[Rfam]
A member of the RNA family "GA-cis RNA", 87 nucleotides long.
RNA sequence: GAGAGGUUGUGCUUAUGCAUCGAAGAUGCAUAUAGGAAUGACACAACCGACUUGCCGCCGAACGUAUGUGAGGGGGCAACACCAAUA
Numbered sequence: 001g002a003g004a005g006g007u008u009g010u011g012c013u014u015a016u017g018c019a020u021c022g023a024a025g026a027u028g029c030a031u032a033u034a035g036g037a038a039u040g041a042c043a044c045a046a047c048c049g050a051c052u053u054g055c056c057g058c059c060g061a062a063c064g065u066a067u068g069u070g071a072g073g074g075g076g077c078a079a080c081a082c083c084a085a086u087a
Base pairs, nucleotide, nucleotide: 008045009044010043011042013040015031016030017029018028019027020026054077055076056075058073059072062069063068